[Rfam]
RNA sequence: AAGCCUCUUUACCAUCAGCGAGGUAUAGAGUUCCUACGUGCCGUAUCCAAAGUCGUAGGAACUUAAUACCGUGCUCUUGGAGGGCUGUC
Numbered sequence: 001a002a003g004c005c006u007c008u009u010u011a012c013c014a015u016c017a018g019c020g021a022g023g024u025a026u027a028g029a030g031u032u033c034c035u036a037c038g039u040g041c042c043g044u045a046u047c048c049a050a051a052g053u054c055g056u057a058g059g060a061a062c063u064u065a066a067u068a069c070c071g072u073g074c075u076c077u078u079g080g081a082g083g084g085c086u087g088u089c
Stems, first nucleotide, its partner, number of pairs: 012080003017075004022070005028064010

This 89-nucleotide RNA from Drosophila persimilis belongs to the Rfam family "mir-276 microRNA precursor family". The base pairs follow the family's consensus structure, which was predicted with RNAalifold. On this family, see Skalsky et al., BMC Genomics 2010: "Identification of microRNAs expressed in two mosquito vectors, Aedes albopictus and Culex quinquefasciatus".